[Rfam]
Background
The family of this 87-nucleotide RNA from Capitella teleta is "Vault RNA". The base pairs follow the family's consensus structure, which is taken from published work. Rfam classes the family as a non-coding RNA gene. Taxonomically the source falls in Capitella (Eukaryota, Metazoa, Lophotrochozoa, Annelida).
RNA sequence: GUGUUGGCUUAGUCGUGUGGGUACUUCGUUUCUCAAACUGAUUUGGAUCAAACACCUGAUAAUCCACUGACGCCAUCCAACACAUUU
Numbered sequence: 001g002u003g004u005u006g007g008c009u010u011a012g013u014c015g016u017g018u019g020g021g022u023a024c025u026u027c028g029u030u031u032c033u034c035a036a037a038c039u040g041a042u043u044u045g046g047a048u049c050a051a052a053c054a055c056c057u058g059a060u061a062a063u064c065c066a067c068u069g070a071c072g073c074c075a076u077c078c079a080a081c082a083c084a085u086u087u
Stems, first nucleotide, its partner, number of pairs: 002082006012071004017067004026059003